[Rfam]
RNA sequence: GGGAGUAUGAUGAAAGAAACAGACGGAUUCCCAUUGAUUUUAAUCGUGAGAACAACAACCAGCUACUUCUGACUCCU
Numbered sequence: 001g002g003g004a005g006u007a008u009g010a011u012g013a014a015a016g017a018a019a020c021a022g023a024c025g026g027a028u029u030c031c032c033a034u035u036g037a038u039u040u041u042a043a044u045c046g047u048g049a050g051a052a053c054a055a056c057a058a059c060c061a062g063c064u065a066c067u068u069c070u071g072a073c074u075c076c077u
Stems, first nucleotide, its partner, number of pairs: 001077005
RNA: Small nucleolar RNA R12